[Rfam]
RNA sequence: UGUGUCUGUGUGUGUGUCAUUGUUUAAUUUGUAAUAGAGACUUGCUGAUAGGUGCAAAAAUUAAAUCAUCUUUUGCAACCCAGAACUAAUUGUCCAAUAUGAAUUUAAGUACUUGUAUGAACCCCAUAAUAGU
Numbered sequence: 001u002g003u004g005u006c007u008g009u010g011u012g013u014g015u016g017u018c019a020u021u022g023u024u025u026a027a028u029u030u031g032u033a034a035u036a037g038a039g040a041c042u043u044g045c046u047g048a049u050a051g052g053u054g055c056a057a058a059a060a061u062u063a064a065a066u067c068a069u070c071u072u073u074u075g076c077a078a079c080c081c082a083g084a085a086c087u088a089a090u091u092g093u094c095c096a097a098u099a100u101g102a103a104u105u106u107a108a109g110u111a112c113u114u115g116u117a118u119g120a121a122c123c124c125c126a127u128a129a130u131a132g133u
Stems, first nucleotide, its partner, number of pairs: 001056009016041003020037004028033001065130002068127002071120002074117002083106003087102001089100002
Shown here is a 133-nucleotide RNA from Dipodomys ordii, a member of the family "Small nucleolar RNA SNORA40". The literature on the family includes a 1997 paper in J Mol Biol by Ofengand and Bakin, "Mapping to nucleotide resolution of pseudouridine residues in large subunit ribosomal RNAs from representative eukaryotes, prokaryotes, archaebacteria, mitochondria and chloroplasts". Its family is annotated with nucleolus and RNA processing in the Gene Ontology. The snoRNA ACA 40 belongs to the H/ACA family of snoRNAs and guides the pseudouridylation of 28S rRNA subunit at position U4565. NB This family has a high threshold value to exclude a large number of closely related sequences that do not appear to have conserved H and ACA boxes, and may be pseudogenes.